[Rfam]
RNA sequence: ACCAGAAUGGCCGAGUGGUUAAGGCGUUGGACUUAAGAUCCAAUGGGUAAAUGCCAGCGUGGGUUCAAUCCCCACUUCUGGUA
Number, nucleotide and partner (000 for none) at each position: 001a082002c081003c080004a079005g078006a077007a076008u000009g000010g025011c024012c023013g000014a000015g000016u000017g000018g000019u000020u000021a000022a000023g012024g011025c010026g000027u043028u042029g041030g040031a039032c000033u000034u000035a000036a000037g000038a000039u031040c030041c029042a028043a027044u000045g000046g000047g000048u000049a000050a000051a000052u000053g000054c000055c000056a000057g000058c000059g075060u074061g073062g072063g071064u000065u000066c000067a000068a000069u000070c000071c063072c062073c061074a060075c059076u007077u006078c005079u004080g003081g002082u001083a000

tRNA: an 83-nucleotide RNA sequence from Erpetoichthys calabaricus.